[Rfam]
Nucleotides: 068
Stems, first nucleotide, its partner, number of pairs: 002060004013034003036052004041047001
Number, partner (000 for none) and nucleotide at each position: 001000u002060c003059c004058c005057c006000u007000u008000g009000c010000a011000g012000a013034g014033c015032u016000a017000a018000c019000g020000c021000c022000g023000u024000u025000u026000u027000a028000a029000a030000c031000g032015a033014g034013u035000g036052c037051c038050g039049g040000a041047g042000a043000u044000a045000a046000g047041c048000g049039c050038c051037g052036g053000g054000a055000a056000a057005g058004g059003g060002g061000a062000u063000u064000a065000a066000u067000c068000a
A member of the RNA family "rydB RNA" from Rouxiella badensis, 68 nucleotides long. About the family: This family consists of several bacterial sequences from E. coli, Shigella flexneri and Salmonella species. This RNA gene was discovered by an RNA screen between the ydiC and ydiH in E. coli. This gene is only 67 bases in length and is composed of a hairpin like structure. The function of this RNA is unknown. Taxonomically the source falls in Rouxiella (Bacteria, Pseudomonadota, Gammaproteobacteria, Yersiniaceae). The family's consensus secondary structure was predicted with RNAalifold. A search with the family's covariance model found it, with a score of 55 bits.